[Rfam]
Annotation: MIR1509 microRNA precursor family: a 105-nucleotide RNA sequence from Trifolium medium.
RNA sequence: UGAUUCACAGCAUUUUUUUAAUCAAAGAAAUUACCGUCGAGGGUGUAUCAAAUCCCUCUUUCUUCCUCCACGGUGUUUCUUUGAUUAAAGAAAUUUUUUGGAUCA
Numbered sequence: 001u002g003a004u005u006c007a008c009a010g011c012a013u014u015u016u017u018u019u020a021a022u023c024a025a026a027g028a029a030a031u032u033a034c035c036g037u038c039g040a041g042g043g044u045g046u047a048u049c050a051a052a053u054c055c056c057u058c059u060u061u062c063u064u065c066c067u068c069c070a071c072g073g074u075g076u077u078u079c080u081u082u083g084a085u086u087a088a089a090g091a092a093a094u095u096u097u098u099u100g101g102a103u104c105a
Stems, first nucleotide, its partner, number of pairs: 001105007012094002016090015032075006039068005
The match comes from Rfam's covariance-model search (88 bits).